[Rfam]
RNA sequence: UCCAUCGUGAGGUGGAAUCCGAAGGAAGCCGGAGGCAAACUUCUGGUCUGACGAACAGAAAUCACAUCAGGCAUCGUAAGCUGGGUAAGGUUGCGCAACAAACUGAAGCCCGAAACUAUCCGGAAGCUUACGGUGUAGAUGUGGCAGAUAGAUGGAAGGAAAGACUGCGUU
Numbered sequence: 001u002c003c004a005u006c007g008u009g010a011g012g013u014g015g016a017a018u019c020c021g022a023a024g025g026a027a028g029c030c031g032g033a034g035g036c037a038a039a040c041u042u043c044u045g046g047u048c049u050g051a052c053g054a055a056c057a058g059a060a061a062u063c064a065c066a067u068c069a070g071g072c073a074u075c076g077u078a079a080g081c082u083g084g085g086u087a088a089g090g091u092u093g094c095g096c097a098a099c100a101a102a103c104u105g106a107a108g109c110c111c112g113a114a115a116c117u118a119u120c121c122g123g124a125a126g127c128u129u130a131c132g133g134u135g136u137a138g139a140u141g142u143g144g145c146a147g148a149u150a151g152a153u154g155g156a157a158g159g160a161a162a163g164a165c166u167g168c169g170u171u
Stems, first nucleotide, its partner, number of pairs: 001016006028171001030169002036163001040158006046149005062144005071136003075132007083111004089104004
Dot-bracket structure: ((((((....))))))...........(.((....(...(((((((((((...........(((((....(((.(((((((.((((..((((........))))...))))..............))))))).)))...))))))))))...))))))....)....)).)
Annotation: Shown here is a 171-nucleotide sequence from Syntrophomonas wolfei, a member of the family "Group II catalytic intron D1-D4-3". Lineage of the source: Bacteria > Bacillati > Bacillota > Eubacteriales > Syntrophomonas wolfei subsp. wolfei. The literature on the family includes a 2003 paper in Crit Rev Biochem Mol Biol by Lehmann and Schmidt, "Group II introns: structure and catalytic versatility of large natural ribozymes".